[Rfam]
Background:
This 136-nucleotide RNA belongs to the Rfam family "U11 spliceosomal RNA". On this family, see Schneider et al., Proc Natl Acad Sci U S A 2004: "Identification of an evolutionarily divergent U11 small nuclear ribonucleoprotein particle in Drosophila".
RNA sequence: AAAAAGGGCAUCUGCUGUGAGUAGCAUAGCUGUGGAAGGGAUUCUCUGACACAGUUACGGAAUCGCUAUCAAGAGAUUUCGGAUGCAUAAUUUUUAUGACACGGGGCUGCUAAUGAUCGUUGGUCUUGGCGCCCCA
Numbered sequence: 001a002a003a004a005a006g007g008g009c010a011u012c013u014g015c016u017g018u019g020a021g022u023a024g025c026a027u028a029g030c031u032g033u034g035g036a037a038g039g040g041a042u043u044c045u046c047u048g049a050c051a052c053a054g055u056u057a058c059g060g061a062a063u064c065g066c067u068a069u070c071a072a073g074a075g076a077u078u079u080c081g082g083a084u085g086c087a088u089a090a091u092u093u094u095u096a097u098g099a100c101a102c103g104g105g106g107c108u109g110c111u112a113a114u115g116a117u118c119g120u121u122g123g124u125c126u127u128g129g130c131g132c133c134c135c136a
Stems, first nucleotide, its partner, number of pairs: 008086005013026005027057008035047001037045002058081007104134004109130005115125004

Rfam's curators put it in the seed alignment. Its Rfam clan is "U1 clan".